[Rfam]
RNA: TPP riboswitch aptamer (THI element)
RNA sequence: AACGGCCACUGGGGGUGCCGGUCAAAACCGGCUGAGAGGGAGAGUUCUCCCAACCCUUUGAACCUGAUCCGGGUAAUACCGGCGUAGGGAAAGUGGGGUAACUGGAAG
Dot-bracket structure: .....(((((((((..(((((......)))))......((((....))))...)))).....((((..((((......))))..))))...)))))............
Numbered sequence: 001a002a003c004g005g006c007c008a009c010u011g012g013g014g015g016u017g018c019c020g021g022u023c024a025a026a027a028c029c030g031g032c033u034g035a036g037a038g039g040g041a042g043a044g045u046u047c048u049c050c051c052a053a054c055c056c057u058u059u060g061a062a063c064c065u066g067a068u069c070c071g072g073g074u075a076a077u078a079c080c081g082g083c084g085u086a087g088g089g090a091a092a093g094u095g096g097g098g099u100a101a102c103u104g105g106a107a108g
Stems, first nucleotide, its partner, number of pairs: 006096005011057004017032005039050004063088004069082004